[Rfam]
RNA sequence: GCUCUCUCUCUCUAAUCCUUGCUACCUGGGUGAGAGUGCUGUCUCAACGCAGUGCACCUGGGCAAGGAUUCUGAGAGCAAGAGC
Number, nucleotide and partner (000 for none) at each position: 001g000002c000003u000004c000005u000006c000007u000008c000009u000010c000011u000012c000013u000014a070015a069016u068017c067018c066019u065020u064021g000022c000023u000024a000025c062026c061027u060028g059029g058030g057031u056032g055033a000034g000035a000036g000037u051038g050039c049040u000041g000042u000043c000044u000045c000046a000047a000048c000049g039050c038051a037052g000053u000054g000055c032056a031057c030058c029059u028060g027061g026062g025063c000064a020065a019066g018067g017068a016069u015070u014071c000072u000073g000074a000075g000076a000077g000078c000079a000080a000081g000082a000083g000084c000
Rfam assigns this 84-nucleotide RNA from Heterocephalus glaber to the family "mir-500 microRNA precursor family". A reference for the family is Linsen et al. (2010), "Small RNA expression and strain specificity in the rat", BMC Genomics. The base pairs follow the family's consensus structure, which was predicted with RNAalifold.